The record is a 107-nucleotide sequence from Anaerobacillus isosaccharinicus, which matches "EGFOA RNA" in Rfam.
The family's consensus secondary structure is taken from published work.
The organism belongs to Anaerobacillus, within Bacteria.
By type it is a small RNA.
RNA sequence: UUCUUCCCAGAAGUAACCGUCCCUGUCGCAUUCGCGAGGUAGAAUUAAGUGUGCUAAAUGGUAAAGGCGCUCUGUAAAGCAGGACCUGGGGGAGUUGGAGAGAGAGU
Numbered sequence: 001u002u003c004u005u006c007c008c009a010g011a012a013g014u015a016a017c018c019g020u021c022c023c024u025g026u027c028g029c030a031u032u033c034g035c036g037a038g039g040u041a042g043a044a045u046u047a048a049g050u051g052u053g054c055u056a057a058a059u060g061g062u063a064a065a066g067g068c069g070c071u072c073u074g075u076a077a078a079g080c081a082g083g084a085c086c087u088g089g090g091g092g093a094g095u096u097g098g099a100g101a102g103a104g105a106g107u
Stems, first nucleotide, its partner, number of pairs: 006090005019085002022083004026037004043107001045101002049068002052065001069095005